[Rfam]
The record is a 108-nucleotide RNA from Musa balbisiana, which matches "MIR394 microRNA precursor family" in Rfam. On this family, see Jones-Rhoades and Bartel, Mol Cell 2004: "Computational identification of plant microRNAs and their targets, including a stress-induced miRNA". Rfam links the family to the GO terms miRNA-mediated post-transcriptional gene silencing and RISC complex. The base pairs follow the family's consensus structure, which was predicted with WAR. The source organism's lineage runs through Eukaryota, Euphyllophyta, Magnoliopsida, Zingiberales and Musa. Rfam 15.1 lists 724 matches to the family in 216 species.
RNA sequence: CUCGCAGAGGUGAUUGGCAUUCUGUCCACCUCCACCCACAUCCAUCUCUCAUGAACAAGGAGAAGCAUACGGAUGGAGGUGGGCAUCCUGCCAACUGAACUCUGCUAG
Numbered sequence: 001c002u003c004g005c006a007g008a009g010g011u012g013a014u015u016g017g018c019a020u021u022c023u024g025u026c027c028a029c030c031u032c033c034a035c036c037c038a039c040a041u042c043c044a045u046c047u048c049u050c051a052u053g054a055a056c057a058a059g060g061a062g063a064a065g066c067a068u069a070c071g072g073a074u075g076g077a078g079g080u081g082g083g084c085a086u087c088c089u090g091c092c093a094a095c096u097g098a099a100c101u102c103u104g105c106u107a108g
Stems, first nucleotide, its partner, number of pairs: 011098001014094006023085011